[Rfam]
RNA sequence: GACCUCGUGGCGCAACGGUAGCGCGUCUGACUCCAGAUCAGAAGGCUGCGUGUUCGAAUCACGUCGGGGUCA
Numbered sequence: 001g002a003c004c005u006c007g008u009g010g011c012g013c014a015a016c017g018g019u020a021g022c023g024c025g026u027c028u029g030a031c032u033c034c035a036g037a038u039c040a041g042a043a044g045g046c047u048g049c050g051u052g053u054u055c056g057a058a059u060c061a062c063g064u065c066g067g068g069g070u071c072a
Stems, first nucleotide, its partner, number of pairs: 001071007010024004026042005048064005

The family of this 72-nucleotide RNA sequence from Avian sarcoma virus is "tRNA".
It is annotated as a transfer RNA.
It is one of the family's seed sequences.
Transfer RNA (tRNA) molecules are approximately 80 nucleotides in length.